[Rfam]
Shown here is a 95-nucleotide sequence from Citreicella sp. 357, a member of the family "Rhodo-rpoB RNA". The base pairs follow the family's consensus structure, which is taken from published work. Rfam's curators put it in the seed alignment. By type it is a cis-regulatory element.
RNA sequence: GGAUCGAGAGACCCACUUUGGGACGUGGGUCGAGCAUGGAUCAGAUGAAUUGCCAUCUCGGAUGGAUGCACGGCCGGCGCCCACCGGCCUGUGUU
Numbered sequence: 001g002g003a004u005c006g007a008g009a010g011a012c013c014c015a016c017u018u019u020g021g022g023a024c025g026u027g028g029g030u031c032g033a034g035c036a037u038g039g040a041u042c043a044g045a046u047g048a049a050u051u052g053c054c055a056u057c058u059c060g061g062a063u064g065g066a067u068g069c070a071c072g073g074c075c076g077g078c079g080c081c082c083a084c085c086g087g088c089c090u091g092u093g094u095u
Stems, first nucleotide, its partner, number of pairs: 002042004010031007068094004072089005